[Rfam]
RNA sequence: ACGAUGUUCCGCUGCAUUCUUUGGGAAUGUAAGAGCAUUUG
Dot-bracket structure: ..(((((((...((((((.......)))))).)))))))..